[Rfam]
RNA: Flavo-1 RNA
RNA sequence: UCAUAGUCUUUGUUUUGCGUUAGGGAUGGUAGUGGCAUCCUUUACUGCCGGGGUUCGGCAGUAAAGAUAUAACGAACAGCCCGGCCCUUG
Dot-bracket structure: ......................(((.((...((...(((...((((((((.....))))))))..)))...))...)).)))........